[Rfam]
RNA: mir-16 microRNA precursor family
RNA sequence: UUUCUGCUUUAGCAGAGCAAAUGCUGGAGAGGAGCUGAGUCCCUUCAGCAUUCGCUCUGCUGAAGUGGAAG
Numbered sequence: 001u002u003u004c005u006g007c008u009u010u011a012g013c014a015g016a017g018c019a020a021a022u023g024c025u026g027g028a029g030a031g032g033a034g035c036u037g038a039g040u041c042c043c044u045u046c047a048g049c050a051u052u053c054g055c056u057c058u059g060c061u062g063a064a065g066u067g068g069a070a071g
Base pairs, nucleotide, nucleotide: 001071002070003069005067006066007065010064011061012060013059014058015057018054020052021051022050023049024048025047026046027045